[Rfam]
RNA sequence: GCAUAUUUCAGGUUUGUGCGUGAAUCUAAAGCUUCAUUUUUUCCGCUCAUUUAUGGGGUUUUUGUGGGCCUUAGAUUCACGCACAAGCUCGUAAUCUUCCU
Numbered sequence: 001g002c003a004u005a006u007u008u009c010a011g012g013u014u015u016g017u018g019c020g021u022g023a024a025u026c027u028a029a030a031g032c033u034u035c036a037u038u039u040u041u042u043c044c045g046c047u048c049a050u051u052u053a054u055g056g057g058g059u060u061u062u063u064g065u066g067g068g069c070c071u072u073a074g075a076u077u078c079a080c081g082c083a084c085a086a087g088c089u090c091g092u093a094a095u096c097u098u099c100c101u
Stems, first nucleotide, its partner, number of pairs: 001099001003097001005095003011089016028072002032068002043056001